RNA sequence: AAUUGAAUAGGCGAUGACGGUCGCCAUUAAACGAGCAAAAUCUAAUGACGUCUACUAUUUA
Numbered sequence: 001a002a003u004u005g006a007a008u009a010g011g012c013g014a015u016g017a018c019g020g021u022c023g024c025c026a027u028u029a030a031a032c033g034a035g036c037a038a039a040a041u042c043u044a045a046u047g048a049c050g051u052c053u054a055c056u057a058u059u060u061a
Stems, first nucleotide, its partner, number of pairs: 010025004016052004021047001033042002
The family of this 61-nucleotide RNA sequence from Lactobacillus gasseri is "Fluoride riboswitch aptamer (crcB RNA motif)". It is one of the family's seed sequences.